[Rfam]
RNA sequence: GAAUGAGAUGAUGAUUAUAUUAUGUUUCCCUAUUGGUUUGAUUGCCGAUAUGAUGGCGUCAACGUUGUAUUAGCUCUAGCUGAUCGUUU
Numbered sequence: 001g002a003a004u005g006a007g008a009u010g011a012u013g014a015u016u017a018u019a020u021u022a023u024g025u026u027u028c029c030c031u032a033u034u035g036g037u038u039u040g041a042u043u044g045c046c047g048a049u050a051u052g053a054u055g056g057c058g059u060c061a062a063c064g065u066u067g068u069a070u071u072a073g074c075u076c077u078a079g080c081u082g083a084u085c086g087u088u089u
Stems, first nucleotide, its partner, number of pairs: 002088004040060001043058004